[Rfam]
Source information
This 85-nucleotide RNA sequence from Microctonus hyperodae belongs to the Rfam family "mir-184 microRNA precursor family".

RNA sequence: GUGCCUAAAGCCCCUUAUCAUUCUCUUGCCCGGUGUGAAAUUUUUGUGACAACUGGACGGAGAACUGAUAAGGGCCCGAGGGUUA
Numbered sequence: 001g002u003g004c005c006u007a008a009a010g011c012c013c014c015u016u017a018u019c020a021u022u023c024u025c026u027u028g029c030c031c032g033g034u035g036u037g038a039a040a041u042u043u044u045u046g047u048g049a050c051a052a053c054u055g056g057a058c059g060g061a062g063a064a065c066u067g068a069u070a071a072g073g074g075c076c077c078g079a080g081g082g083u084u085a
Base pairs, nucleotide, nucleotide: 012074013073014072015071016070017069018068019067020066021064022063023062024061025060026059029056030055

Rfam links the family to the GO terms gene silencing by miRNA and RISC complex.